The record is a 78-nucleotide sequence from Geothermobacter hydrogeniphilus, which matches "c-di-GMP-I-GGC riboswitch aptamer" in Rfam.
[Rfam]
RNA sequence: UCCGAUAAGGGCAAAACCAGAGAGAUCUGGCGACGCAAAGCCACGGGUCCUGAUCACAGGACAGCCGGGUUGCCGAAG
Numbered sequence: 001u002c003c004g005a006u007a008a009g010g011g012c013a014a015a016a017c018c019a020g021a022g023a024g025a026u027c028u029g030g031c032g033a034c035g036c037a038a039a040g041c042c043a044c045g046g047g048u049c050c051u052g053a054u055c056a057c058a059g060g061a062c063a064g065c066c067g068g069g070u071u072g073c074c075g076a077a078g
Stems, first nucleotide, its partner, number of pairs: 001078001003075002011036002017030005034064001039071004044067003047062003
Record summary
The base pairs follow the family's consensus structure, which is taken from published work. A search with the family's covariance model found it, with a score of 65 bits.